Overview: A member of the RNA family "Flavo-1 RNA" from Flavobacterium sp. FPG59, 82 nucleotides long.

RNA sequence: UGGUACGCGUGAGGGAUAGCAGCGGUAUCCUUUAUUUUUUUUCUUUAAAAAAAUAAAGAUAGAGCGGAGAGCCCGACCCGCA
Numbered sequence: 001u002g003g004u005a006c007g008c009g010u011g012a013g014g015g016a017u018a019g020c021a022g023c024g025g026u027a028u029c030c031u032u033u034a035u036u037u038u039u040u041u042u043c044u045u046u047a048a049a050a051a052a053a054u055a056a057a058g059a060u061a062g063a064g065c066g067g068a069g070a071g072c073c074c075g076a077c078c079c080g081c082a
Base pairs, nucleotide, nucleotide: 013074014073015072017070022065023064027060028059029058033055034054035053036052037051038050039049040048
The base pairs follow the family's consensus structure, which is taken from published work. The family has 201 seed sequences and 7,497 matches in Rfam 15.1. The match comes from Rfam's covariance-model search (55 bits). NCBI's taxonomy places the organism under Bacteria, Pseudomonadati, Flavobacteriia, Flavobacteriaceae, Flavobacterium. Rfam classes the family as a small RNA.